[Rfam]
Background: permuted transfer-messenger RNA: a 281-nucleotide RNA from a Legionellales bacterium. Bacterial tmRNA, also known as 10Sa RNA or SsrA, is named for its dual tRNA and mRNA-like properties. Its role is to liberate the mRNA from a stalled ribosome. To accomplish this part of the tmRNA is used as a reading frame that ends in a translation stop signal. The broken mRNA is replaced in the ribosome by the tmRNA and translation of the tmRNA leads to addition of a proteolysis tag to the incomplete protein enabling recognition by a protease. Recently a number of permuted tmRNA genes have been found encoded in two parts. tmRNAs have been identified in eubacteria and some chloroplasts but are absent from archaeal and eukaryote nuclear genomes. For this family Rfam cites "tmRDB (tmRNA database)" (Zwieb et al., Nucleic Acids Res, 2003). NCBI's taxonomy places the organism under Bacteria, Pseudomonadati, Pseudomonadota, Gammaproteobacteria, Legionellales.
RNA sequence: GAAACAAACUCAACACUGGACAGGACCGGGGGGCAGUACCCCGCGCCUCCACCAUAAACACACGGAUGUGCAAAAAUUAGUUGCUGCAUACAAAAAAGUAUGGGGCAAACGCUGGAAAGACAAAUGGGUUGAACACUAUUGGUGUGUUUAUAUUGGGGGCGAAACAGGAUCGACUGACAGUUAAUAGGUGCGUGGAGUUGUCCGGUGGAAACUCGGUUAACGUAACAAAAACAACAAUUGCAAACGAUAACUUUGCAUCUGAGAUUCGCCUAGCAGCGUAA
Number, nucleotide and partner (000 for none) at each position: 001g000002a000003a000004a000005c000006a000007a000008a189009c188010u000011c000012a000013a000014c000015a000016c000017u179018g178019g000020a000021c176022a175023g174024g000025a000026c000027c043028g042029g041030g040031g039032g000033g000034c000035a000036g000037u000038a000039c031040c030041c029042c028043g027044c161045g160046c159047c158048u157049c156050c155051a000052c000053c000054a000055u000056a000057a000058a000059c000060a000061c000062a000063c000064g000065g000066a000067u000068g000069u000070g000071c000072a000073a000074a000075a000076a000077u000078u000079a000080g000081u000082u000083g000084c000085u000086g000087c000088a000089u000090a000091c000092a000093a000094a000095a000096a000097a000098g000099u000100a000101u000102g000103g000104g000105g000106c000107a000108a000109a000110c000111g000112c000113u000114g000115g000116a000117a000118a000119g000120a000121c000122a000123a000124a000125u000126g000127g000128g000129u000130u000131g000132a000133a000134c000135a000136c000137u000138a000139u000140u000141g000142g000143u000144g000145u000146g000147u000148u000149u000150a000151u000152a000153u000154u000155g050156g049157g048158g047159g046160c045161g044162a000163a000164a000165c000166a000167g000168g000169a000170u000171c000172g000173a000174c023175u022176g021177a000178c018179a017180g000181u000182u000183a000184a000185u000186a000187g000188g009189u008190g000191c000192g000193u000194g000195g000196a000197g000198u000199u000200g000201u000202c216203c215204g214205g213206u000207g000208g000209a000210a000211a000212c000213u205214c204215g203216g202217u000218u000219a000220a000221c000222g000223u000224a000225a000226c000227a000228a000229a000230a000231a000232c000233a000234a000235c000236a000237a000238u000239u000240g000241c000242a000243a000244a000245c000246g000247a000248u000249a000250a000251c000252u000253u000254u000255g000256c000257a000258u000259c000260u000261g000262a000263g000264a000265u000266u000267c000268g000269c000270c000271u000272a000273g000274c000275a000276g000277c000278g000279u000280a000281a000
The family's consensus secondary structure is taken from published work.